[Rfam]
RNA sequence: UGAGUGUUAUGAUGAUGGAAUCCUAUUCUGAUUCUUAGUCUAGCUCUGGUCUACCGCUGAGCUUGUCUCAGCGG
Numbered sequence: 001u002g003a004g005u006g007u008u009a010u011g012a013u014g015a016u017g018g019a020a021u022c023c024u025a026u027u028c029u030g031a032u033u034c035u036u037a038g039u040c041u042a043g044c045u046c047u048g049g050u051c052u053a054c055c056g057c058u059g060a061g062c063u064u065g066u067c068u069c070a071g072c073g074g
Base pairs, nucleotide, nucleotide: 002046003045004044005043011040012039013038017035018034019033020032021031022030054074055073056072057071058070059069060068061067